[Rfam]
Small nucleolar RNA SNORA9: a 134-nucleotide RNA sequence from Apteryx australis.
Its Rfam clan is "SNORA9 clan".
About the family: ACA9 is a member of the H/ACA class of snoRNA that guide the sites of modification of uridines to pseudouridines.
The match comes from Rfam's covariance-model search (124 bits).
Rfam links the family to the GO terms nucleolus and RNA processing.
The family has 36 seed sequences and 1,202 matches in Rfam 15.1.
Nucleotides: 134
Base pairs, nucleotide, nucleotide: 003060004059005058006057007056008055018044019043020042023038024037025036026035027034072127073126074125075124076123087113088112089111090110091109092108094106095105096104
Number, partner (000 for none) and nucleotide at each position: 001000c002000a003060g004059c005058a006057a007056g008055c009000c010000u011000u012000c013000c014000a015000g016000c017000g018044u019043g020042g021000c022000g023038g024037g025036g026035u027034c028000u029000g030000c031000c032000g033000u034027g035026a036025c037024c038023c039000c040000g041000g042020u043019c044018a045000u046000u047000c048000c049000u050000g051000u052000a053000g054000c055008g056007c057006u058005u059004g060003c061000c062000a063000g064000a065000g066000c067000a068000a069000c070000c071000c072127c073126g074125g075124g076123a077000u078000g079000g080000u081000u082000u083000g084000a085000g086000g087113c088112c089111u090110c091109u092108c093000u094106c095105u096104g097000c098000c099000c100000u101000c102000c103000u104096c105095g106094g107000g108092g109091g110090g111089a112088g113087g114000c115000u116000a117000u118000a119000g120000a121000a122000a123076u124075c125074u126073c127072g128000g129000a130000c131000a132000u133000g134000u